[Rfam]
RNA sequence: AAAAACACCCAUCAACGGUGUGGUGCCCCAACCGGGAGCAACUUUACCGUAUUCGGAGUUA
Numbered sequence: 001a002a003a004a005a006c007a008c009c010c011a012u013c014a015a016c017g018g019u020g021u022g023g024u025g026c027c028c029c030a031a032c033c034g035g036g037a038g039c040a041a042c043u044u045u046a047c048c049g050u051a052u053u054c055g056g057a058g059u060u061a
Stems, first nucleotide, its partner, number of pairs: 017045002020042002023039002026036002
Dot-bracket structure: ................((.((.((.((.......)).)).)).))................
The record is a 61-nucleotide RNA from Oculatella sp. LEGE 06141, which matches "Plastid-psbN 5UTR RNA" in Rfam. It scores 52 bits against the family's covariance model. A reference for the family is Richter et al. (2023), "Retrograde signaling in plants: A critical review focusing on the GUN pathway and beyond", Plant Commun. The family's RNA type in Rfam is cis-regulatory element. Plastid psbN is a non-coding RNA (ncRNA) recognised in plastids. It was reported as a conserved 11 stem-loop in the prime untranslated region (5UTR) of psbN genes. It has been reported that the motif is retained in a subset of mature transcripts in barley, which can suggests a possible role in transcript alternative 5 prime processing.